[Rfam]
RNA sequence: AGUAAGGAUAGAGGCGCAAUGACCAUCAGUACUUAUGUGGAGGAGAAUGAGCUCCAGAGAAGCAUAAGGAAAGGGGGAUUUGCCGAAGUGGAAAAGGGACUCAUCCCUUGAAGCUGGUUCUGCGAUUGAAUAAAUGCAGGGCUGUCAUAUAGGAGACUAUAUGGAGGGCUAUCUAGCUU
Numbered sequence: 001a002g003u004a005a006g007g008a009u010a011g012a013g014g015c016g017c018a019a020u021g022a023c024c025a026u027c028a029g030u031a032c033u034u035a036u037g038u039g040g041a042g043g044a045g046a047a048u049g050a051g052c053u054c055c056a057g058a059g060a061a062g063c064a065u066a067a068g069g070a071a072a073g074g075g076g077g078a079u080u081u082g083c084c085g086a087a088g089u090g091g092a093a094a095a096g097g098g099a100c101u102c103a104u105c106c107c108u109u110g111a112a113g114c115u116g117g118u119u120c121u122g123c124g125a126u127u128g129a130a131u132a133a134a135u136g137c138a139g140g141g142c143u144g145u146c147a148u149a150u151a152g153g154a155g156a157c158u159a160u161a162u163g164g165a166g167g168g169c170u171a172u173c174u175a176g177c178u179u
Base pairs, nucleotide, nucleotide: 006174007173008172009171010170011169016083017082018081019080023076024075032068033067034066035065036064037063038062087115088114089113094109095108096107097106098105116143117142118141119140120139121138122137123136124135126133145164146163147162148161149160150159151158
The family of this 179-nucleotide RNA sequence from Tenuibacillus multivorans is "Lysine riboswitch aptamer".
The organism belongs to Tenuibacillus, within Bacteria.
It scores 113 bits against the family's covariance model.